[Rfam]
RNA sequence: GAGUGAGGUAGAGGCGCGGUCUCAUCAAGAGUACCUUCAGGAAGGUCCAACGGCAUGGACAGAGCACUGGAGGAAAAGGGAUGGCCGCCGAAGUCCAAGUACGGCCACACUUGGGCUGGGUCUGCAGUGAAGAAUUGCAGGACUGUCACCGGCGGGUUAUUCCCGGCUUGCUGGUGGAGCGCUAUCUUACGG
Numbered sequence: 001g002a003g004u005g006a007g008g009u010a011g012a013g014g015c016g017c018g019g020u021c022u023c024a025u026c027a028a029g030a031g032u033a034c035c036u037u038c039a040g041g042a043a044g045g046u047c048c049a050a051c052g053g054c055a056u057g058g059a060c061a062g063a064g065c066a067c068u069g070g071a072g073g074a075a076a077a078g079g080g081a082u083g084g085c086c087g088c089c090g091a092a093g094u095c096c097a098a099g100u101a102c103g104g105c106c107a108c109a110c111u112u113g114g115g116c117u118g119g120g121u122c123u124g125c126a127g128u129g130a131a132g133a134a135u136u137g138c139a140g141g142a143c144u145g146u147c148a149c150c151g152g153c154g155g156g157u158u159a160u161u162c163c164c165g166g167c168u169u170g171c172u173g174g175u176g177g178a179g180c181g182c183u184a185u186c187u188u189a190c191g192g
Stems, first nucleotide, its partner, number of pairs: 006187006016088006024082003034073007092117009118144002121141008146177013
This 192-nucleotide RNA from Heliobacterium mobile belongs to the Rfam family "Lysine riboswitch aptamer". Lineage of the source: Bacteria > Bacillota > Eubacteriales > Heliobacteriaceae > Heliobacterium. Rfam's curators write: Riboswitches are metabolite binding domains within certain messenger RNAs that serve as precision sensors for their corresponding targets. It scores 103 bits against the family's covariance model.